[Rfam]
RNA sequence: GACUGCAUUUUUUAUCACCUCUCUGCAGUCGCGGCUG
Numbered sequence: 001g002a003c004u005g006c007a008u009u010u011u012u013u014a015u016c017a018c019c020u021c022u023c024u025g026c027a028g029u030c031g032c033g034g035c036u037g
Base pairs, nucleotide, nucleotide: 001030002029003028004027005026006025007024
Overview: This 37-nucleotide RNA sequence from Muribaculum intestinale belongs to the Rfam family "S4-Bacteroidia ribosomal protein leader". Pairs were carried over by alignment from the consensus structure, which is taken from published work. The source organism's lineage runs through Bacteria, Bacteroidota, Bacteroidales, Muribaculaceae and Muribaculum. The family is grouped with related families in Rfam's "Ribosomal Protein S4 Leader clan".